[Rfam]
RNA sequence: AGAGGUCACAAGUUUGAGACCAUAGGAGAAGUGCUCACAGCAUGGCCUGUCAAAUUCCAAUGAAAUCUGUGAAUUCUGCU
Numbered sequence: 001a002g003a004g005g006u007c008a009c010a011a012g013u014u015u016g017a018g019a020c021c022a023u024a025g026g027a028g029a030a031g032u033g034c035u036c037a038c039a040g041c042a043u044g045g046c047c048u049g050u051c052a053a054a055u056u057c058c059a060a061u062g063a064a065a066u067c068u069g070u071g072a073a074u075u076c077u078g079c080u
Stems, first nucleotide, its partner, number of pairs: 018047001020045002024080002027077004031043003051069002054066003

A member of the RNA family "Mammalian CPEB3 ribozyme" from Alligator mississippiensis, 80 nucleotides long. Lineage of the source: Eukaryota > Dipnotetrapodomorpha > Tetrapoda > Alligatoridae > Alligator. A search with the family's covariance model found it, with a score of 37 bits.